[Rfam]
RNA sequence: AAUAGUUACUGGGGGUGCCCGCUUUCGGGCUGAGAGAGAAGGCAAGCUUCUUAACCCUUUGGACCUGAUCUGGUUCGUACCAGCGUGGGGAAGUAGAGGAAUUGUUUU
Numbered sequence: 001a002a003u004a005g006u007u008a009c010u011g012g013g014g015g016u017g018c019c020c021g022c023u024u025u026c027g028g029g030c031u032g033a034g035a036g037a038g039a040a041g042g043c044a045a046g047c048u049u050c051u052u053a054a055c056c057c058u059u060u061g062g063a064c065c066u067g068a069u070c071u072g073g074u075u076c077g078u079a080c081c082a083g084c085g086u087g088g089g090g091a092a093g094u095a096g097a098g099g100a101a102u103u104g105u106u107u108u
Stems, first nucleotide, its partner, number of pairs: 006096005011058004017030005037051005064089004070083004
Shown here is a 108-nucleotide RNA from Bacillus subtilis, a member of the family "TPP riboswitch aptamer (THI element)". It is one of the family's seed sequences. Rfam 15.1 lists 16,130 matches to the family in 8,693 species.